The family of this 197-nucleotide RNA from Bacillus licheniformis is "6S / SsrS RNA". The sequence is in the family's curated seed alignment. Rfam classes the family as a non-coding RNA gene. Rfam's curators write: E. coli 6S RNA was the first non coding RNA to be sequenced, but its function was unknown until recently.
RNA sequence: AAAGUCCUGAUGUGUUUGUUGUACACCUAGUUUUGACCGAACAUUUUUUUACUUGGGAGUUCGAUGUUUCCGAAUGGAGCAAAUGCCUCUUAUCACUCGUGUGCUCAGGAGGACUUGCAAAGUUUGGAACAGAACACCCACCUGCCGAGAGCGGGAUCAAAACGAAGGAAUACGACAACGGCACAAUCGGGACUUUU
Numbered sequence: 001a002a003a004g005u006c007c008u009g010a011u012g013u014g015u016u017u018g019u020u021g022u023a024c025a026c027c028u029a030g031u032u033u034u035g036a037c038c039g040a041a042c043a044u045u046u047u048u049u050u051a052c053u054u055g056g057g058a059g060u061u062c063g064a065u066g067u068u069u070c071c072g073a074a075u076g077g078a079g080c081a082a083a084u085g086c087c088u089c090u091u092a093u094c095a096c097u098c099g100u101g102u103g104c105u106c107a108g109g110a111g112g113a114c115u116u117g118c119a120a121a122g123u124u125u126g127g128a129a130c131a132g133a134a135c136a137c138c139c140a141c142c143u144g145c146c147g148a149g150a151g152c153g154g155g156a157u158c159a160a161a162a163c164g165a166a167g168g169a170a171u172a173c174g175a176c177a178a179c180g181g182c183a184c185a186a187u188c189g190g191g192a193c194u195u196u197u
Base pairs, nucleotide, nucleotide: 002195003194004193005192006191007190008189009188010187011186012184013183014182015181017180018179019178030163031162032161033160034159035158036157037155038154055139056138057137059135060134061133062132069128070127071126072125073124074123075122081116082115086112087111088110089109090108